[Rfam]
RNA sequence: CUUACGGGACGACCCGUAAGCUUAUCGCACUCGGGGACGGCCCCA
Dot-bracket structure: ((((((((....))))))))............((((....)))).
RNA: Guanidine-II riboswitch aptamer (mini-ykkC)